RNA sequence: UACGAGGGUAGAGGCCUUGAUACCCGCCCCGCGACACUCCGAGGCACCGAUGGGGCGGGGGGAGCCAGUGGUGCGACCGGCUACCGUCAAG
Numbered sequence: 001u002a003c004g005a006g007g008g009u010a011g012a013g014g015c016c017u018u019g020a021u022a023c024c025c026g027c028c029c030c031g032c033g034a035c036a037c038u039c040c041g042a043g044g045c046a047c048c049g050a051u052g053g054g055g056c057g058g059g060g061g062g063a064g065c066c067a068g069u070g071g072u073g074c075g076a077c078c079g080g081c082u083a084c085c086g087u088c089a090a091g
Base pairs, nucleotide, nucleotide: 001091004088005087007085008084009083010082011081013066014065015064023059024058025057026056027055028054029053043077044074045073046072047071048070
RNA: c-di-GMP-II-GAG riboswitch aptamer